[Rfam]
RNA sequence: CUCUUAUUGAGAGUGGCUGAGGGACUGGCCCUGUGACGCCCGGCAACCGUUCAUCGUAAUUCCAGUGAUGAAUAGGUGCUAAAUCCUGCAAAAUACGGACAGUAUUUUGAGAAAUAAGAG
Numbered sequence: 001c002u003c004u005u006a007u008u009g010a011g012a013g014u015g016g017c018u019g020a021g022g023g024a025c026u027g028g029c030c031c032u033g034u035g036a037c038g039c040c041c042g043g044c045a046a047c048c049g050u051u052c053a054u055c056g057u058a059a060u061u062c063c064a065g066u067g068a069u070g071a072a073u074a075g076g077u078g079c080u081a082a083a084u085c086c087u088g089c090a091a092a093a094u095a096c097g098g099a100c101a102g103u104a105u106u107u108u109g110a111g112a113a114a115u116a117a118g119a120g
Stems, first nucleotide, its partner, number of pairs: 001120008013041001015040003021031003025088001027086002042080004047076002049073009084112001089109008
A member of the RNA family "SAM riboswitch aptamer (S box leader)" from Oceanobacillus iheyensis, 120 nucleotides long. It is one of the family's seed sequences.